[Rfam]
RNA: FMN riboswitch aptamer (RFN element)
RNA sequence: UAAAAUCUUCGGGGCAGGGUGGAAUUCCCGACCGGCAGUGAAAGCCUGCGAGCCGCAUAUGCGGUUGACUCGGUGAAAUUCCGAGGCCGACGGUAAAAGUCCGGAUGGGAGAAGAUUUAC
Numbered sequence: 001u002a003a004a005a006u007c008u009u010c011g012g013g014g015c016a017g018g019g020u021g022g023a024a025u026u027c028c029c030g031a032c033c034g035g036c037a038g039u040g041a042a043a044g045c046c047u048g049c050g051a052g053c054c055g056c057a058u059a060u061g062c063g064g065u066u067g068a069c070u071c072g073g074u075g076a077a078a079u080u081c082c083g084a085g086g087c088c089g090a091c092g093g094u095a096a097a098a099g100u101c102c103g104g105a106u107g108g109g110a111g112a113a114g115a116u117u118u119a120c
Stems, first nucleotide, its partner, number of pairs: 003118008017029003031100002033089002035049004044087002052065003069085005091103003